[Rfam]
RNA sequence: AGUAAUUGGAUUUUUAAGGGUGGACAGCACUUCCUGUAGAAGGGAGGUGUUGCAUGAUGACGACAUUUCAAGCGCUAAUGCUACUCAUCGCAUUCACGGGUUUGAUUGUAUCGAUCAUCCAUUUGUCAAAAGACAAAUAACCACCCUUAAGCGCUGCCAUGCUUGGUAGGGUGGUUUGCAUCUGCUUACAUUGGCUGUCCCUCUUAAAGGGAAUCCAGUUACUCGCGACCGUGGGUGUGUUACGAGCACCUGCG
Numbered sequence: 001a002g003u004a005a006u007u008g009g010a011u012u013u014u015u016a017a018g019g020g021u022g023g024a025c026a027g028c029a030c031u032u033c034c035u036g037u038a039g040a041a042g043g044g045a046g047g048u049g050u051u052g053c054a055u056g057a058u059g060a061c062g063a064c065a066u067u068u069c070a071a072g073c074g075c076u077a078a079u080g081c082u083a084c085u086c087a088u089c090g091c092a093u094u095c096a097c098g099g100g101u102u103u104g105a106u107u108g109u110a111u112c113g114a115u116c117a118u119c120c121a122u123u124u125g126u127c128a129a130a131a132g133a134c135a136a137a138u139a140a141c142c143a144c145c146c147u148u149a150a151g152c153g154c155u156g157c158c159a160u161g162c163u164u165g166g167u168a169g170g171g172u173g174g175u176u177u178g179c180a181u182c183u184g185c186u187u188a189c190a191u192u193g194g195c196u197g198u199c200c201c202u203c204u205u206a207a208a209g210g211g212a213a214u215c216c217a218g219u220u221a222c223u224c225g226c227g228a229c230c231g232u233g234g235g236u237g238u239g240u241u242a243c244g245a246g247c248a249c250c251u252g253c254g
Stems, first nucleotide, its partner, number of pairs: 001223005007217003011213001012197001013151008022141001027050003031046005059115001061113003065109001074085001160180003198212004230254009
Rfam assigns this 254-nucleotide RNA from Shouchella lonarensis to the family "BsrG". Rfam classes the family as a small RNA. The match comes from Rfam's covariance-model search (56 bits). Gene Ontology terms of the family: autolysis and toxin activity. Rfam describes the family as follows. bsrE, bsrG and bsrH pair through intermolecular interactions with antisense sRNAs. They form type I toxin/antitoxin system that includes an mRNA encoding for a short, toxic peptide (bsrE, bsrG and bsrH) and an antitoxin that is comprised of an antisense RNA. bsrG encodes a 39-amino-acid toxin, and the 180 nucleotide antisense sRNA called SR4 acts as the antitoxin (they overlap by 123 nucleotides). SR4 interaction with the 3'UTR of bsrG RNA promotes bsrG degradation and inhibits its translation. BsrG interferes with cell envelope biosynthesis, causes membrane invaginations and delocalisation of the cell wall synthesis and initiates autolysis. bsrE RNA encodes 30 amino-acid toxin peptide.